[Rfam]
RNA sequence: GAAGUUAUUUAUUCAGCAUUGGGACAUAAAAUUAACUUAAAAUUUAAAUAUUGAAGAUGCUUUAAUUAAAGUUAAAGACUAGCCA
Numbered sequence: 001g002a003a004g005u006u007a008u009u010u011a012u013u014c015a016g017c018a019u020u021g022g023g024a025c026a027u028a029a030a031a032u033u034a035a036c037u038u039a040a041a042a043u044u045u046a047a048a049u050a051u052u053g054a055a056g057a058u059g060c061u062u063u064a065a066u067u068a069a070a071g072u073u074a075a076a077g078a079c080u081a082g083c084c085a
Stems, first nucleotide, its partner, number of pairs: 002038006008030005013024002060077007